[Rfam]
This 250-nucleotide sequence from Streptomyces poonensis belongs to the Rfam family "Streptomyces sRNA 4677". Rfam's curators write: Located in the intergenic region between anti-sigma factor SCO4677 gene and a putative regulatory protein gene SCO4676. scr4677 expression requires the SCO4677 activity and scr4677 sRNA itself seem to affect the levels of the SCO4676-associated transcripts. The base pairs follow the family's consensus structure.
RNA sequence: GACUCCGGUGCUGCGGGCGGUCUUCCCCAAGAAACACGAGAGGGAAAGAAACCACACCAAGCCCCACCCCUCCCGCCCGCAGCGCAAACUCACUCGCGGGAGUGAACAUCGCCAACUCGGCUGGAUUCGGGACCGGUUGCCUGCCCUACGCUCAGCGCGGCACAGCACAACACCCAGACAUGCGACGGCCCCCGCCGGGACUGGCAUCCCAAUGCGAGGGCCUGACCACCGAGGAAGUAGGAGCUUCCCG
Numbered sequence: 001g002a003c004u005c006c007g008g009u010g011c012u013g014c015g016g017g018c019g020g021u022c023u024u025c026c027c028c029a030a031g032a033a034a035c036a037c038g039a040g041a042g043g044g045a046a047a048g049a050a051a052c053c054a055c056a057c058c059a060a061g062c063c064c065c066a067c068c069c070c071u072c073c074c075g076c077c078c079g080c081a082g083c084g085c086a087a088a089c090u091c092a093c094u095c096g097c098g099g100g101a102g103u104g105a106a107c108a109u110c111g112c113c114a115a116c117u118c119g120g121c122u123g124g125a126u127u128c129g130g131g132a133c134c135g136g137u138u139g140c141c142u143g144c145c146c147u148a149c150g151c152u153c154a155g156c157g158c159g160g161c162a163c164a165g166c167a168c169a170a171c172a173c174c175c176a177g178a179c180a181u182g183c184g185a186c187g188g189c190c191c192c193c194g195c196c197g198g199g200a201c202u203g204g205c206a207u208c209c210c211a212a213u214g215c216g217a218g219g220g221c222c223u224g225a226c227c228a229c230c231g232a233g234g235a236a237g238u239a240g241g242a243g244c245u246u247c248c249c250g
Stems, first nucleotide, its partner, number of pairs: 007230004016077004090105006120156005187222005193216003197210004233248005